RNA: MIR533 microRNA precursor family
Organism: Physcomitrium patens
RNA sequence: GGAGGACCGAUAUGGAGAGCUGUCCAGGCUGUGAGGGGAGCACUCGUAUUCUUUUGACCUUUGCUAGAAGAGGGAAUACAGCGCUCUCCCUCACAGUCUGUACAGCUCUCUGUAUCUCUUCCUC
Numbered sequence: 001g002g003a004g005g006a007c008c009g010a011u012a013u014g015g016a017g018a019g020c021u022g023u024c025c026a027g028g029c030u031g032u033g034a035g036g037g038g039a040g041c042a043c044u045c046g047u048a049u050u051c052u053u054u055u056g057a058c059c060u061u062u063g064c065u066a067g068a069a070g071a072g073g074g075a076a077u078a079c080a081g082c083g084c085u086c087u088c089c090c091u092c093a094c095a096g097u098c099u100g101u102a103c104a105g106c107u108c109u110c111u112g113u114a115u116c117u118c119u120u121c122c123u124c
Stems, first nucleotide, its partner, number of pairs: 001124002004121001006119001009116015025100013